[Rfam]
RNA sequence: GUUGGGUAUGGAGACAUGAGUCCCAAAACAUAUUUCGGUAUGUUUGUUGGUAGUGCGUGCGCCCUCAUGGGCGUACUCACCAUUGCACUACCUGUCCCAGUCAUUGUCAGCCAC
Numbered sequence: 001g002u003u004g005g006g007u008a009u010g011g012a013g014a015c016a017u018g019a020g021u022c023c024c025a026a027a028a029c030a031u032a033u034u035u036c037g038g039u040a041u042g043u044u045u046g047u048u049g050g051u052a053g054u055g056c057g058u059g060c061g062c063c064c065u066c067a068u069g070g071g072c073g074u075a076c077u078c079a080c081c082a083u084u085g086c087a088c089u090a091c092c093u094g095u096c097c098c099a100g101u102c103a104u105u106g107u108c109a110g111c112c113a114c
Stems, first nucleotide, its partner, number of pairs: 001114002004111001008107004013102003018097001020095002037077004049063003

Potassium channel RNA editing signal: a 114-nucleotide RNA sequence from Bugula neritina. The match comes from Rfam's covariance-model search (85 bits). NCBI's taxonomy places the organism under Eukaryota, Bryozoa, Flustrina, Buguloidea, Bugula. The family's RNA type in Rfam is cis-regulatory element. Pairs were carried over by alignment from the consensus structure, which is taken from published work.